[Rfam]
RNA sequence: GGGAUAUGAUGAGUGGUCAGUACUCGCAAUUAAACAUGCGAUAUGGGUGUCCAACCCACUCCCUGGUUACGACAACAGGGCACUCCCAUCUUCACCAAUCUGAUCCC
Numbered sequence: 001g002g003g004a005u006a007u008g009a010u011g012a013g014u015g016g017u018c019a020g021u022a023c024u025c026g027c028a029a030u031u032a033a034a035c036a037u038g039c040g041a042u043a044u045g046g047g048u049g050u051c052c053a054a055c056c057c058a059c060u061c062c063c064u065g066g067u068u069a070c071g072a073c074a075a076c077a078g079g080g081c082a083c084u085c086c087c088a089u090c091u092u093c094a095c096c097a098a099u100c101u102g103a104u105c106c107c
Base pairs, nucleotide, nucleotide: 001107002106003105004104014097015096016095017094024041025040026039027038045086046085047084048082049081050080051079063078064077066076067075
The record is a 107-nucleotide RNA sequence from Populus trichocarpa, which matches "Small nucleolar RNA Z279/snoR105/snoR108" in Rfam.
The organism belongs to Populus, within Eukaryota.
By type it is a C/D-box small nucleolar RNA.
Its family is annotated with nucleolus and RNA processing in the Gene Ontology.
Rfam 15.1 lists 906 matches to the family in 223 species.
About the family: This family includes the plant snoRNAs known as Z279, snoR105 and snoR108.
For this family Rfam cites "Experimental RNomics: identification of 140 candidates for small non-messenger RNAs in the plant Arabidopsis thaliana" (Marker et al., Curr Biol, 2002).